[Rfam]
RNA sequence: GCGGAAGGGAAGCUCAAUGCUGAGGUCACGUGCUGAGUGCGGUUACGUAAGUGGCUGUCACUCUCCCAGAAACCUCCGGGAAGGUCUGAGACAGGAGCCAAUCGCUACCCUUACAGGGUGUCAUCUGAAUGAGAUGAGUGAGCCCCCAGCAACCCCACGCUGGAGUGGAACAGUCCAUUGGGGGGAGGGCAAAAGAAGCGUCAGCUAUCGUAGUGAGAUGGAAGGUUGCCAAGGAUUUGGGCUCCGCCCACUCACUCAAUGCGAGUUGCUGUGCCGAUGUCUCCCCCAGUGGGUCCUUGGAAGUGGCUCACGGCUGGCCAAGUUAGUCCAAUGGCUGAGAUGGGGCAGCAGCACGGGAUGUGUGUGCGCCUCAUAACCCAAGUCAGACUACUCUCCCUCCGC
Numbered sequence: 001g002c003g004g005a006a007g008g009g010a011a012g013c014u015c016a017a018u019g020c021u022g023a024g025g026u027c028a029c030g031u032g033c034u035g036a037g038u039g040c041g042g043u044u045a046c047g048u049a050a051g052u053g054g055c056u057g058u059c060a061c062u063c064u065c066c067c068a069g070a071a072a073c074c075u076c077c078g079g080g081a082a083g084g085u086c087u088g089a090g091a092c093a094g095g096a097g098c099c100a101a102u103c104g105c106u107a108c109c110c111u112u113a114c115a116g117g118g119u120g121u122c123a124u125c126u127g128a129a130u131g132a133g134a135u136g137a138g139u140g141a142g143c144c145c146c147c148a149g150c151a152a153c154c155c156c157a158c159g160c161u162g163g164a165g166u167g168g169a170a171c172a173g174u175c176c177a178u179u180g181g182g183g184g185g186a187g188g189g190c191a192a193a194a195g196a197a198g199c200g201u202c203a204g205c206u207a208u209c210g211u212a213g214u215g216a217g218a219u220g221g222a223a224g225g226u227u228g229c230c231a232a233g234g235a236u237u238u239g240g241g242c243u244c245c246g247c248c249c250a251c252u253c254a255c256u257c258a259a260u261g262c263g264a265g266u267u268g269c270u271g272u273g274c275c276g277a278u279g280u281c282u283c284c285c286c287c288a289g290u291g292g293g294u295c296c297u298u299g300g301a302a303g304u305g306g307c308u309c310a311c312g313g314c315u316g317g318c319c320a321a322g323u324u325a326g327u328c329c330a331a332u333g334g335c336u337g338a339g340a341u342g343g344g345g346c347a348g349c350a351g352c353a354c355g356g357g358a359u360g361u362g363u364g365u366g367c368g369c370c371u372c373a374u375a376a377c378c379c380a381a382g383u384c385a386g387a388c389u390a391c392u393c394u395c396c397c398u399c400c401g402c
Stems, first nucleotide, its partner, number of pairs: 001402004008396003013339004018334001022076004035063005040057007086386004096315004106120005121137006138311007162296003340374007
RNA: Nuclear RNase P
Organism: Hymenochirus boettgeri